[Rfam]
RNA sequence: GAGCAGUAGGUGCGGUAUUCCAAAUACGUUUAAAAACCCGCGAUAUAGUGCUGGACGAUCGGAAAAGUUGACCAAUACUCAUAAGUACUGGCGCGGCAUCUCCCCCCAAGUGACUCGCCAGCGAAGGUACCGUGGACCGCGUACCUUGAUUACUCCUAAUGGUCUUAACCCGGAUUCACCCCCCAGAACCCGG
Numbered sequence: 001g002a003g004c005a006g007u008a009g010g011u012g013c014g015g016u017a018u019u020c021c022a023a024a025u026a027c028g029u030u031u032a033a034a035a036a037c038c039c040g041c042g043a044u045a046u047a048g049u050g051c052u053g054g055a056c057g058a059u060c061g062g063a064a065a066a067g068u069u070g071a072c073c074a075a076u077a078c079u080c081a082u083a084a085g086u087a088c089u090g091g092c093g094c095g096g097c098a099u100c101u102c103c104c105c106c107c108a109a110g111u112g113a114c115u116c117g118c119c120a121g122c123g124a125a126g127g128u129a130c131c132g133u134g135g136a137c138c139g140c141g142u143a144c145c146u147u148g149a150u151u152a153c154u155c156c157u158a159a160u161g162g163u164c165u166u167a168a169c170c171c172g173g174a175u176u177c178a179c180c181c182c183c184c185a186g187a188a189c190c191c192g193g
Stems, first nucleotide, its partner, number of pairs: 040163002043160001088121003092117002095114001097112003124147007131139001170193004175188003

RgsA sRNA: a 193-nucleotide RNA from Pseudomonas sp. M30-35. The base pairs follow the family's consensus structure, which was predicted with RNAalifold. The organism belongs to Pseudomonas, within Bacteria. About the family: This small RNA (sRNA) was computationally identified in the genome of the opportunistic pathogen Pseudomonas aeruginosa and its expression verified by northern blot analysis. P16 sRNA appears to be conserved across several Pseudomonas species and Azotobacter vinelandii. In these species it is consistently located downstream of a predicted TatD deoxyribonuclease gene. P16 has a predicted Rho independent terminator at the 3' end but the function of P16 is unknown. It has been shown that this sRNA is transcribed from an RpoS-dependent promoter under positive, probably indirect GacA control in two Pseudomonas species. It was renamed RgsA (for regulation by GacA and stress).RpoS mRNA expression is repressed by RgsA during the exponential phase. The Hfq RNA chaperone is required for the repression. Rfam classes the family as a small RNA.